[Rfam]
RNA sequence: AUGCUAGGUCAAUUUAGCUAGGCCUAUUGGAAUAGUAAUAUUUCAUAAGUACAUCACUAUAUGCUGGAAAUUCCUAAAGACUCAAGUACCUUAAUGGUAACAAUCUUGAGCUCUCGAUUUAAAGAAUCGACGAGUGACCACGAGAUUCCUCGUGGUUGUAUAUUACAAUGGAUAAUCAGCAGGAAACCAAAUAAUCUAUUUGGGUUCCUCAGAGACUACACGUGAUGCCCCGUUAACCAUAAACGGGUGAAGAUAUAGUCCGGUCUAUACUGAAAAGUAUGG
Numbered sequence: 001a002u003g004c005u006a007g008g009u010c011a012a013u014u015u016a017g018c019u020a021g022g023c024c025u026a027u028u029g030g031a032a033u034a035g036u037a038a039u040a041u042u043u044c045a046u047a048a049g050u051a052c053a054u055c056a057c058u059a060u061a062u063g064c065u066g067g068a069a070a071u072u073c074c075u076a077a078a079g080a081c082u083c084a085a086g087u088a089c090c091u092u093a094a095u096g097g098u099a100a101c102a103a104u105c106u107u108g109a110g111c112u113c114u115c116g117a118u119u120u121a122a123a124g125a126a127u128c129g130a131c132g133a134g135u136g137a138c139c140a141c142g143a144g145a146u147u148c149c150u151c152g153u154g155g156u157u158g159u160a161u162a163u164u165a166c167a168a169u170g171g172a173u174a175a176u177c178a179g180c181a182g183g184a185a186a187c188c189a190a191a192u193a194a195u196c197u198a199u200u201u202g203g204g205u206u207c208c209u210c211a212g213a214g215a216c217u218a219c220a221c222g223u224g225a226u227g228c229c230c231c232g233u234u235a236a237c238c239a240u241a242a243a244c245g246g247g248u249g250a251a252g253a254u255a256u257a258g259u260c261c262g263g264u265c266u267a268u269a270c271u272g273a274a275a276a277g278u279a280u281g282g
Stems, first nucleotide, its partner, number of pairs: 005026006012019001030044003053226003057222001062181006072172003182208002187203004212261001214260005228247003233242003267280005